[Rfam]
RNA sequence: CGUCACGCGGUGAUCGGCCCCGGCCCGCUGACAGGCAACCCUUCCACCGCGACGGGGUGCCCCGGGUGACGACCGGGUCCCGCCGGUGCGGCGGGGCAAGCGUGGUCU
Numbered sequence: 001c002g003u004c005a006c007g008c009g010g011u012g013a014u015c016g017g018c019c020c021c022g023g024c025c026c027g028c029u030g031a032c033a034g035g036c037a038a039c040c041c042u043u044c045c046a047c048c049g050c051g052a053c054g055g056g057g058u059g060c061c062c063c064g065g066g067u068g069a070c071g072a073c074c075g076g077g078u079c080c081c082g083c084c085g086g087u088g089c090g091g092c093g094g095g096g097c098a099a100g101c102g103u104g105g106u107c108u
Stems, first nucleotide, its partner, number of pairs: 008030004016025002034061003039057003043052002077097009